[Rfam]
RNA sequence: GUCCAGCGGGCUCCUAACCCCGAGCGAAACAACCGGACAGGGGCGGGGGAACCAACCGCCGGGCGCCCGACCAGGCGCCCUUGGGGUGAAGCCGGCGCGAGCCGGCCGGGCUGCCCUCAGCCCGAACCCGACAGCUCACCUCGCAGGUGCGGUACGGAGAGGGA
Number, nucleotide and partner (000 for none) at each position: 001g000002u000003c000004c000005a000006g000007c000008g000009g000010g000011c149012u000013c147014c146015u000016a000017a000018c042019c041020c040021c000022g000023a000024g000025c000026g000027a000028a000029a000030c000031a000032a000033c000034c000035g000036g000037a000038c000039a000040g020041g019042g018043g144044c143045g142046g141047g140048g139049g000050a000051a000052c000053c083054a082055a000056c000057c000058g000059c000060c000061g000062g000063g000064c000065g000066c000067c000068c000069g000070a000071c000072c000073a000074g000075g000076c000077g000078c000079c000080c000081u000082u054083g053084g129085g128086g127087u000088g000089a000090a000091g000092c105093c104094g103095g102096c000097g000098c000099g000100a000101g000102c095103c094104g093105g092106c000107c000108g123109g122110g121111c120112u000113g000114c000115c000116c000117u000118c000119a000120g111121c110122c109123c108124g000125a000126a000127c086128c085129c084130g000131a000132c000133a000134g000135c000136u000137c000138a000139c048140c047141u046142c045143g044144c043145a000146g014147g013148u000149g011150c000151g000152g000153u000154a000155c000156g000157g000158a000159g000160a000161g000162g000163g000164a000